A member of the RNA family "Acido-Lenti-1 RNA" from Candidatus Vecturithrix granuli, 45 nucleotides long. The organism belongs to Candidatus Vecturithrix, within Bacteria. The family's RNA type in Rfam is small RNA.
RNA sequence: CGCAGGGCUACACCCUGCGCUGACAGAUGUCGCCCUUUCAGGGCU
Numbered sequence: 001c002g003c004a005g006g007g008c009u010a011c012a013c014c015c016u017g018c019g020c021u022g023a024c025a026g027a028u029g030u031c032g033c034c035c036u037u038u039c040a041g042g043g044c045u
Stems, first nucleotide, its partner, number of pairs: 001019007032044005